FMN riboswitch aptamer (RFN element): a 112-nucleotide RNA sequence from Peptoniphilus sp. ING2-D1G. Pairs were carried over by alignment from the consensus structure, which is taken from published work. The source organism's lineage runs through Bacteria, Bacillati, Tissierellia, Tissierellales and Peptoniphilus. The family has 146 seed sequences and 6,230 matches in Rfam 15.1. Its family is annotated with FMN binding in the Gene Ontology.
RNA sequence: UAUUAUCUUCAGGGCGGGGCGCAAUUCCCCACCGGCGGUAAAGUCCGCGAGCGAAAGCUGAAUUGGUGAAAUUCCAAUACCGACAGUAUAGUCUGGAUGAAAGAAGAGAGAG
Dot-bracket structure: ..((.(((((......(((.......))).[[((((((....[[))))..((....))...(((((.......)))))]])).(((....]]))).......))))).))..